Notes
The record is a 61-nucleotide RNA sequence from Anisodus acutangulus, which matches "Plastid-psbN 5UTR RNA" in Rfam. The match comes from Rfam's covariance-model search (76 bits). Rfam 15.1 lists 2,345 matches to the family in 397 species. NCBI's taxonomy places the organism under Eukaryota, Streptophyta, Spermatophyta, asterids, Anisodus.
RNA sequence: UGCAACACUCAUCAAAGGAAUAGUUUCCCAUCCAGGAGCUACUUUAUCAUAUUCCGAAUUC
Numbered sequence: 001u002g003c004a005a006c007a008c009u010c011a012u013c014a015a016a017g018g019a020a021u022a023g024u025u026u027c028c029c030a031u032c033c034a035g036g037a038g039c040u041a042c043u044u045u046a047u048c049a050u051a052u053u054c055c056g057a058a059u060u061c
Stems, first nucleotide, its partner, number of pairs: 017045003021041007